[Rfam]
RNA sequence: GGCAUUUAAAAAGCAAGUUUGUGGGCCACAAGCUGAGUGUGUCAUGUCACUUUCACCACUGUCUCUUGGGAAGGCUGAGCAUGAGCAGCCCUCACAGGGCUCUCCCCAACUUGGGGAUGUGAAUUCCCAGACAGCAAGGAUCCAUGUGAGGGCAGAUUGGGCAGGAGAUGCCAGCGGUGCCCCUGAAGCCAUUGGCACAGGUAGCAUCAACAGACACAUGGCCAGCCAAAUGAGUGCAAUGGCUGAGGUGAGGCACGUCACAUGAGGACCUCAUAGCCCAAUUCAGACUACUCUUCCCUGUC
Numbered sequence: 001g002g003c004a005u006u007u008a009a010a011a012a013g014c015a016a017g018u019u020u021g022u023g024g025g026c027c028a029c030a031a032g033c034u035g036a037g038u039g040u041g042u043c044a045u046g047u048c049a050c051u052u053u054c055a056c057c058a059c060u061g062u063c064u065c066u067u068g069g070g071a072a073g074g075c076u077g078a079g080c081a082u083g084a085g086c087a088g089c090c091c092u093c094a095c096a097g098g099g100c101u102c103u104c105c106c107c108a109a110c111u112u113g114g115g116g117a118u119g120u121g122a123a124u125u126c127c128c129a130g131a132c133a134g135c136a137a138g139g140a141u142c143c144a145u146g147u148g149a150g151g152g153c154a155g156a157u158u159g160g161g162c163a164g165g166a167g168a169u170g171c172c173a174g175c176g177g178u179g180c181c182c183c184u185g186a187a188g189c190c191a192u193u194g195g196c197a198c199a200g201g202u203a204g205c206a207u208c209a210a211c212a213g214a215c216a217c218a219u220g221g222c223c224a225g226c227c228a229a230a231u232g233a234g235u236g237c238a239a240u241g242g243c244u245g246a247g248g249u250g251a252g253g254c255a256c257g258u259c260a261c262a263u264g265a266g267g268a269c270c271u272c273a274u275a276g277c278c279c280a281a282u283u284c285a286g287a288c289u290a291c292u293c294u295u296c297c298c299u300g301u302c
Stems, first nucleotide, its partner, number of pairs: 001302004008295002014245002018241001021066001023065003035052005040046001075286005085222002087101005103117005119219003124214002139208003248274006
RNA: Nuclear RNase P
Organism: Jaculus jaculus